[Rfam]
Rfam assigns this 92-nucleotide RNA sequence from Nonomuraea wenchangensis to the family "SAM riboswitch aptamer (S box leader)". Rfam describes the family as follows. The SAM riboswitch is found upstream of a number of genes which code for proteins involved in methionine or cysteine biosynthesis in Gram-positive bacteria. The SAM riboswitch acts at the level of transcription termination control. The predicted structure consists of a complex stem-loop region followed by a single stem loop terminator region. An alternative and mutually exclusive form involves bases in the 3' segment of helix 1 with those in the 5' region of helix 5 to form a structure termed the anti-terminator form. This entry represents the conserved core of the complex structure involving helices 1-4. NCBI's taxonomy places the organism under Bacteria, Bacillati, Actinomycetes, Streptosporangiaceae, Nonomuraea.
RNA sequence: CGAUCAUCCAGAGGAUCCGAGGGGCCUGGCCCUGUGACGGUCCGGCAACCUGCCCAGCUCGGGCAAGGUGCCAACGCCAGGAACGAUGAGGA
Numbered sequence: 001c002g003a004u005c006a007u008c009c010a011g012a013g014g015a016u017c018c019g020a021g022g023g024g025c026c027u028g029g030c031c032c033u034g035u036g037a038c039g040g041u042c043c044g045g046c047a048a049c050c051u052g053c054c055c056a057g058c059u060c061g062g063g064c065a066a067g068g069u070g071c072c073a074a075c076g077c078c079a080g081g082a083a084c085g086a087u088g089a090g091g092a
Base pairs, nucleotide, nucleotide: 004089005088006087007086008085013043014042015041016040017039021032022031023030026080027079028078029077044072045071046070047069049068050067051065052064053063054062076084